[Rfam]
RNA sequence: CUUGUGGACUGUUAAACAAAUGGAAGUAGAUUUUAUACGUUAUGAUAUAAAAACCAAACCAGACAGGAAGAAGCAAGAA
Numbered sequence: 001c002u003u004g005u006g007g008a009c010u011g012u013u014a015a016a017c018a019a020a021u022g023g024a025a026g027u028a029g030a031u032u033u034u035a036u037a038c039g040u041u042a043u044g045a046u047a048u049a050a051a052a053a054c055c056a057a058a059c060c061a062g063a064c065a066g067g068a069a070g071a072a073g074c075a076a077g078a079a
Base pairs, nucleotide, nucleotide: 001077002076003075004074005073009066010065011064012063013062021061022060023059029054031052032051033050034049035048036047037046
RAGATH-18 RNA: a 79-nucleotide sequence. The family's RNA type in Rfam is small RNA.